[Rfam]
The record is a 50-nucleotide RNA, which matches "ssNA-helicase RNA" in Rfam. It is one of the family's seed sequences. By type it is a small RNA.

RNA sequence: AGCUAUAAGGUAUAGUAUUACCCUUAUAGCGUAGCAAGUAGCAUGUAUCA
Numbered sequence: 001a002g003c004u005a006u007a008a009g010g011u012a013u014a015g016u017a018u019u020a021c022c023c024u025u026a027u028a029g030c031g032u033a034g035c036a037a038g039u040a041g042c043a044u045g046u047a048u049c050a
Base pairs, nucleotide, nucleotide: 002030003029004028005027006026007025008024009023010022